[Rfam]
About this RNA: The record is a 68-nucleotide RNA from Hymenochirus boettgeri, which matches "mir-33 microRNA precursor family" in Rfam. Rfam links the family to the GO terms gene silencing by miRNA and RISC complex. A search with the family's covariance model found it, with a score of 73 bits. For this family Rfam cites "Direct sequencing and expression analysis of a large number of miRNAs in Aedes aegypti and a multi-species survey of novel mosquito miRNAs" (Li et al., BMC Genomics, 2009). The source organism's lineage runs through Eukaryota, Eumetazoa, Teleostomi, Sarcopterygii and Hymenochirus.

RNA sequence: CUGUAGUGCAUUGUAGUUGCAUUGCAUGUGCUAUAUCUAGUGUGCAAUGUAUCUGCAGUGUAACACAG
Numbered sequence: 001c002u003g004u005a006g007u008g009c010a011u012u013g014u015a016g017u018u019g020c021a022u023u024g025c026a027u028g029u030g031c032u033a034u035a036u037c038u039a040g041u042g043u044g045c046a047a048u049g050u051a052u053c054u055g056c057a058g059u060g061u062a063a064c065a066c067a068g
Base pairs, nucleotide, nucleotide: 001068002067003066004065006064007062008061009060010059011058012057013056014055015054016053019050021048022047023046024045025044026043027042